[Rfam]
RNA sequence: CUUGUAAUCCGGUAGGUAAGGCUACCACAGGGAUAUGGGUCGCUGCCGCAAAGAGAUGGAGACAUCUCACGUUGGUUUGAACAGGUCCUGUCGAAAAACAAGGCAGAAUCUAACGCGACUUCACCGCCCUGUGAUGCUAAAGCUUGAACGGUGGCAUGAAAAG
Number, nucleotide and partner (000 for none) at each position: 001c000002u000003u000004g000005u159006a000007a157008u156009c000010c154011g149012g000013u101014a000015g144016g143017u142018a000019a000020g138021g137022c136023u000024a000025c000026c133027a132028c131029a130030g129031g128032g127033a000034u000035a000036u000037g000038g000039g119040u118041c117042g116043c115044u000045g076046c075047c074048g073049c000050a000051a000052a000053g000054a000055g066056a065057u064058g063059g000060a000061g000062a000063c058064a057065u056066c055067u000068c000069a000070c000071g000072u000073u048074g047075g046076u045077u000078u000079g000080a000081a000082c000083a000084g110085g109086u108087c000088c000089u000090g104091u103092c102093g000094a000095a000096a000097a000098a000099c000100a000101a013102g092103g091104c090105a000106g000107a000108a086109u085110c084111u000112a000113a000114c000115g043116c042117g041118a040119c039120u000121u000122c000123a000124c000125c000126g000127c032128c031129c030130u029131g028132u027133g026134a000135u000136g022137c021138u020139a000140a000141a000142g017143c016144u015145u000146g000147a000148a000149c011150g000151g000152u000153g000154g010155c000156a008157u007158g000159a005160a000161a000162a000163g000